[Rfam]
RNA sequence: UUAUGCCUGGCUCCCUGUAUGCCACAAGCGUAAGCCGAUCUGUUUGCAGAUUGACUAAUGUGGGUGGCGUGCGAGGAGCCAAGCAUAC
Numbered sequence: 001u002u003a004u005g006c007c008u009g010g011c012u013c014c015c016u017g018u019a020u021g022c023c024a025c026a027a028g029c030g031u032a033a034g035c036c037g038a039u040c041u042g043u044u045u046g047c048a049g050a051u052u053g054a055c056u057a058a059u060g061u062g063g064g065u066g067g068c069g070u071g072c073g074a075g076g077a078g079c080c081a082a083g084c085a086u087a088c
Base pairs, nucleotide, nucleotide: 002087003086004085005084006083008081009080010079011078012077013076014075016073017072018071019070020069021068022067023066024065028061029060
RNA: mir-160 microRNA precursor family
Organism: Morella rubra